[Rfam]
RNA sequence: CGUUAUCGUGGCGAUGGAGUUCGCCCUUAACCGCCCCCAGGGCUGAUGACUCCUCCUGUAAC
Numbered sequence: 001c002g003u004u005a006u007c008g009u010g011g012c013g014a015u016g017g018a019g020u021u022c023g024c025c026c027u028u029a030a031c032c033g034c035c036c037c038c039a040g041g042g043c044u045g046a047u048g049a050c051u052c053c054u055c056c057u058g059u060a061a062c
Base pairs, nucleotide, nucleotide: 010025011024012023013022016053017052018051019050020049021048033043034042035041